Rfam assigns this 80-nucleotide RNA sequence from Flavobacterium cheongpyeongense to the family "Flavo-1 RNA".
[Rfam]
RNA sequence: AUUUAGCCCCGAUAGGAGCGAAAAUCCUUUUGCUUUUUUCUUUAAAAGGCAAAAGAUUGCAGCGAAUAGCGGGACAGAAC
Number, nucleotide and partner (000 for none) at each position: 001a000002u000003u000004u000005a000006g000007c000008c000009c072010c071011g070012a000013u068014a067015g000016g000017a000018g063019c062020g000021a000022a000023a058024a057025u056026c055027c000028u000029u053030u052031u051032g050033c049034u048035u047036u046037u045038u044039u000040c000041u000042u000043u000044a038045a037046a036047a035048g034049g033050c032051a031052a030053a029054a000055g026056a025057u024058u023059g000060c000061a000062g019063c018064g000065a000066a000067u014068a013069g000070c011071g010072g009073g000074a000075c000076a000077g000078a000079a000080c000
Taxonomically the source falls in Flavobacterium (Bacteria, Pseudomonadati, Flavobacteriales, Flavobacteriaceae). Rfam classes the family as a small RNA. A search with the family's covariance model found it, with a score of 78 bits.